[Rfam]
RNA sequence: GUGCCAUAGGGAUGAAUUGGUCCCAGAUAUGUAAACCAUCCACUCAGAGCUUUUUUCACCAAAUUUUCCAAUGUUUUUAGCUGAUCAUCAUGGAUGGAAAAUCU
Numbered sequence: 001g002u003g004c005c006a007u008a009g010g011g012a013u014g015a016a017u018u019g020g021u022c023c024c025a026g027a028u029a030u031g032u033a034a035a036c037c038a039u040c041c042a043c044u045c046a047g048a049g050c051u052u053u054u055u056u057c058a059c060c061a062a063a064u065u066u067u068c069c070a071a072u073g074u075u076u077u078u079a080g081c082u083g084a085u086c087a088u089c090a091u092g093g094a095u096g097g098a099a100a101a102u103c104u
Base pairs, nucleotide, nucleotide: 039098040097041096042095044093056084057083058082060080062078